RNA sequence: GGGGAUCUUCGGAGCCCUUAACCCCGGACCUGCCGCCCUUCGGGGCACUGGUCCUGAAGCAAACGGAAGACAGUUA
Numbered sequence: 001g002g003g004g005a006u007c008u009u010c011g012g013a014g015c016c017c018u019u020a021a022c023c024c025c026g027g028a029c030c031u032g033c034c035g036c037c038c039u040u041c042g043g044g045g046c047a048c049u050g051g052u053c054c055u056g057a058a059g060c061a062a063a064c065g066g067a068a069g070a071c072a073g074u075u076a
Stems, first nucleotide, its partner, number of pairs: 001018004006014001008012001027053004032048001
Source information: A member of the RNA family "L2-Alphaproteobacteria ribosomal protein leader" from Pseudogemmobacter humi, 76 nucleotides long. It is annotated as a cis-regulatory leader. The family's consensus secondary structure is taken from published work. Lineage of the source: Bacteria > Pseudomonadati > Pseudomonadota > Rhodobacterales > Pseudogemmobacter. A search with the family's covariance model found it, with a score of 45 bits. A reference for the family is Eckert and Weinberg (2020), "Discovery of 20 novel ribosomal leader candidates in bacteria and archaea", BMC Microbiol.